[Rfam]
RNA sequence: CCUGUCGUAUUGCCGAUAGCUUUCUACUCCGACAUGCAUAUUUCACCGCUGGUGUCUGUUGUAUGAAGCUCGGAGGACAAUGAAGCCCGUGUCUGUAAGGACCGGAGAGUGAACCGUGAGGGGAAGUCAAAUCUGGUAGCAUCAGGCCGGAUCGGGAG
Numbered sequence: 001c002c003u004g005u006c007g008u009a010u011u012g013c014c015g016a017u018a019g020c021u022u023u024c025u026a027c028u029c030c031g032a033c034a035u036g037c038a039u040a041u042u043u044c045a046c047c048g049c050u051g052g053u054g055u056c057u058g059u060u061g062u063a064u065g066a067a068g069c070u071c072g073g074a075g076g077a078c079a080a081u082g083a084a085g086c087c088c089g090u091g092u093c094u095g096u097a098a099g100g101a102c103c104g105g106a107g108a109g110u111g112a113a114c115c116g117u118g119a120g121g122g123g124a125a126g127u128c129a130a131a132u133c134u135g136g137u138a139g140c141a142u143c144a145g146g147c148c149g150g151a152u153c154g155g156g157a158g
Stems, first nucleotide, its partner, number of pairs: 002019006028074005033065006091102004105128002114121002132151006
RNA: Group II catalytic intron D1-D4-7